The record is a 194-nucleotide RNA from Enterovirga aerilata, which matches "Bradyrhizobiaceae sRNA BjrC174" in Rfam. The family's RNA type in Rfam is small RNA. A reference for the family is Madhugiri et al. (2012), "Small RNAs of the Bradyrhizobium/Rhodopseudomonas lineage and their analysis", RNA Biol. Taxonomically the source falls in Enterovirga (Bacteria, Pseudomonadati, Pseudomonadota, Hyphomicrobiales).
RNA sequence: AUCACGUUCGUGUCAGCAGAUUUCACAUUCCGGCCGCUUUGACGUCGCGCCCUUGCCAAAGCGCGGCAGCAGAAACGGGUCGUUGCCUCGACGGCCCGGCUCCCGGCCGUGCUUUGUCAGCCCCCAGCCAACGCGGCCGGGGCCGGGCCAGAGAAGGUCGAGACAUCAGGGCCGCCCCUCGGGGCGGCCCUUUC
Numbered sequence: 001a002u003c004a005c006g007u008u009c010g011u012g013u014c015a016g017c018a019g020a021u022u023u024c025a026c027a028u029u030c031c032g033g034c035c036g037c038u039u040u041g042a043c044g045u046c047g048c049g050c051c052c053u054u055g056c057c058a059a060a061g062c063g064c065g066g067c068a069g070c071a072g073a074a075a076c077g078g079g080u081c082g083u084u085g086c087c088u089c090g091a092c093g094g095c096c097c098g099g100c101u102c103c104c105g106g107c108c109g110u111g112c113u114u115u116g117u118c119a120g121c122c123c124c125c126a127g128c129c130a131a132c133g134c135g136g137c138c139g140g141g142g143c144c145g146g147g148c149c150a151g152a153g154a155a156g157g158u159c160g161a162g163a164c165a166u167c168a169g170g171g172c173c174g175c176c177c178c179u180c181g182g183g184g185c186g187g188c189c190c191u192u193u194c
Stems, first nucleotide, its partner, number of pairs: 039061001085164001087162005093149011105138007120128002169190008